[Rfam]
Rfam assigns this 132-nucleotide sequence from Xenopus laevis to the family "Small nucleolar RNA SNORA27". By type it is an H/ACA-box small nucleolar RNA.
RNA sequence: CAAGCCCUUUUCACUUUACCAUUUGGAUCUCUUGUGUCUACAGUGGUCAUUCAAGAGGGCAACAAAAAAUUUCCCCUUAAAACCCAGGCAAAUCCAACGUAUUUUGCUUGUGUCCUGUCAGCGGAAACAUUG
Numbered sequence: 001c002a003a004g005c006c007c008u009u010u011u012c013a014c015u016u017u018a019c020c021a022u023u024u025g026g027a028u029c030u031c032u033u034g035u036g037u038c039u040a041c042a043g044u045g046g047u048c049a050u051u052c053a054a055g056a057g058g059g060c061a062a063c064a065a066a067a068a069a070u071u072u073c074c075c076c077u078u079a080a081a082a083c084c085c086a087g088g089c090a091a092a093u094c095c096a097a098c099g100u101a102u103u104u105u106g107c108u109u110g111u112g113u114c115c116u117g118u119c120a121g122c123g124g125a126a127a128c129a130u131u132g
Base pairs, nucleotide, nucleotide: 035061036060037059038058039057044053045052046051072125073124074123076121077120085110086108087107090104091103092102093101
The family is grouped with related families in Rfam's "SNORA27 clan". Pairs were carried over by alignment from the consensus structure.